Shown here is a 135-nucleotide RNA from Dethiosulfovibrio peptidovorans, a member of the family "FMN riboswitch aptamer (RFN element)".
RNA sequence: AGCCAUUCUCGGGGCGGGGUGAAAUUCCCCACCGGCGGUGAUCCGGAUUUUUCCGGUAAGCCCGCGAGCGCUCAAUGCGUUGAUCUGGUGAGACUCCAGAGCCGACGGUCAUAGUCCGGAAGAGAGAGGAUGCCG
Numbered sequence: 001a002g003c004c005a006u007u008c009u010c011g012g013g014g015c016g017g018g019g020u021g022a023a024a025u026u027c028c029c030c031a032c033c034g035g036c037g038g039u040g041a042u043c044c045g046g047a048u049u050u051u052u053c054c055g056g057u058a059a060g061c062c063c064g065c066g067a068g069c070g071c072u073c074a075a076u077g078c079g080u081u082g083a084u085c086u087g088g089u090g091a092g093a094c095u096c097c098a099g100a101g102c103c104g105a106c107g108g109u110c111a112u113a114g115u116c117c118g119g120a121a122g123a124g125a126g127a128g129g130a131u132g133c134c135g
Stems, first nucleotide, its partner, number of pairs: 004132007017029003031115002033104002035065004060102002068080003084100005106118003